RNA sequence: GUCAAGAAGAGGAAGAAAAGAGAGCUUGAGAGCAGUGGGAUUGGGAACAUGGAGAAAAGUCUAAAUGCUUUGUUUUCACCUCUAGUGUUGGAGGUGAGAAUUCUAUUUGGUAUUUCCUGAUGCCUCCUAUUCAUAUUGUUCUCAAGAACUCCUUCCUUUUCUUUUUGGCU
Numbered sequence: 001g002u003c004a005a006g007a008a009g010a011g012g013a014a015g016a017a018a019a020g021a022g023a024g025c026u027u028g029a030g031a032g033c034a035g036u037g038g039g040a041u042u043g044g045g046a047a048c049a050u051g052g053a054g055a056a057a058a059g060u061c062u063a064a065a066u067g068c069u070u071u072g073u074u075u076u077c078a079c080c081u082c083u084a085g086u087g088u089u090g091g092a093g094g095u096g097a098g099a100a101u102u103c104u105a106u107u108u109g110g111u112a113u114u115u116c117c118u119g120a121u122g123c124c125u126c127c128u129a130u131u132c133a134u135a136u137u138g139u140u141c142u143c144a145a146g147a148a149c150u151c152c153u154u155c156c157u158u159u160u161c162u163u164u165u166u167g168g169c170u
Stems, first nucleotide, its partner, number of pairs: 009161005015155003020151003025146010036135002039132002042129005048122003052118001054117001057115004
MIR2118 microRNA precursor family: a 170-nucleotide RNA from Triticum turgidum. Rfam links the family to the GO terms miRNA-mediated post-transcriptional gene silencing and RISC complex. Lineage of the source: Eukaryota > Magnoliopsida > Liliopsida > Triticeae > Triticum turgidum. The literature on the family includes a 2009 paper in Nucleic Acids Res by Xue et al., "Characterization and expression profiles of miRNAs in rice seeds". Rfam 15.1 lists 2,377 matches to the family in 45 species. A search with the family's covariance model found it, with a score of 121 bits.